[Rfam]
RNA: TPP riboswitch aptamer (THI element)
Organism: Hydrogenovibrio marinus
RNA sequence: UUGAAUGCCGAGGGGCGGUCUUCCCGAAUAAUGAAUGGGAUGUACCUGAGAUCCGAAAGGAGACCCUUGAACCUGAUCCAGGUAAUACUGGCGUAGGAACGGGCAGCACAUCCAAAA
Number, nucleotide and partner (000 for none) at each position: 001u000002u000003g000004a000005a000006u105007g104008c103009c102010g000011a067012g066013g065014g064015g000016c000017g046018g045019u044020c000021u042022u000023c000024c000025c000026g000027a000028a000029u000030a000031a000032u000033g000034a000035a000036u000037g000038g000039g000040a000041u000042g021043u000044a019045c018046c017047u000048g000049a000050g000051a000052u000053c060054c059055g000056a000057a000058a000059g054060g053061a000062g000063a000064c014065c013066c012067u011068u000069g000070a000071a000072c097073c096074u095075g094076a000077u000078c091079c090080a089081g088082g000083u000084a000085a000086u000087a000088c081089u080090g079091g078092c000093g000094u075095a074096g073097g072098a000099a000100c000101g000102g009103g008104c007105a006106g000107c000108a000109c000110a000111u000112c000113c000114a000115a000116a000117a000